[Rfam]
RNA: S16-Flavobacteria ribosomal protein leader
Organism: Araneus ventricosus
RNA sequence: AUAAAUAACCGAGGAAUAAAAAUCCCUCAAAAAUUUAU
Number, nucleotide and partner (000 for none) at each position: 001a038002u037003a036004a035005a034006u033007a000008a000009c000010c000011g028012a027013g026014g025015a000016a000017u000018a000019a000020a000021a000022a000023u000024c000025c014026c013027u012028c011029a000030a000031a000032a000033a006034u005035u004036u003037a002038u001